[Rfam]
RNA: mir-221 microRNA precursor family
RNA sequence: GUCGGCAGGUGCUCAGUAGUCAGUGUAGAUCCUGUGGGGCUGCCAGCAGCUACAUCUGGCUACUGGGUCUCUGCGGACGAGC
Numbered sequence: 001g002u003c004g005g006c007a008g009g010u011g012c013u014c015a016g017u018a019g020u021c022a023g024u025g026u027a028g029a030u031c032c033u034g035u036g037g038g039g040c041u042g043c044c045a046g047c048a049g050c051u052a053c054a055u056c057u058g059g060c061u062a063c064u065g066g067g068u069c070u071c072u073g074c075g076g077a078c079g080a081g082c
Stems, first nucleotide, its partner, number of pairs: 013066006020059003023055006032049004